This 154-nucleotide RNA sequence from Thrips palmi belongs to the Rfam family "U12 minor spliceosomal RNA".
A search with the family's covariance model found it, with a score of 123 bits.
Pairs were carried over by alignment from the consensus structure.

RNA sequence: GUGCCUUAAACUAAUGAGUAAGGAAAAUACAGAGCCCUGGUGACGCUUGGCUCCGCUAACAUGCAUUAGUUACAACAAUUUUUGAAGGAGUACAGGCCGUCCUCCCGGCAACCCGCCUACUUUCGCGGGUAGCUGGAGUGAAGCGGUCUGCUCC
Numbered sequence: 001g002u003g004c005c006u007u008a009a010a011c012u013a014a015u016g017a018g019u020a021a022g023g024a025a026a027a028u029a030c031a032g033a034g035c036c037c038u039g040g041u042g043a044c045g046c047u048u049g050g051c052u053c054c055g056c057u058a059a060c061a062u063g064c065a066u067u068a069g070u071u072a073c074a075a076c077a078a079u080u081u082u083u084g085a086a087g088g089a090g091u092a093c094a095g096g097c098c099g100u101c102c103u104c105c106c107g108g109c110a111a112c113c114c115g116c117c118u119a120c121u122u123u124c125g126c127g128g129g130u131a132g133c134u135g136g137a138g139u140g141a142a143g144c145g146g147u148c149u150g151c152u153c154c
Stems, first nucleotide, its partner, number of pairs: 004023005032053005039046001057072004087154005094149007103138001106135004112129005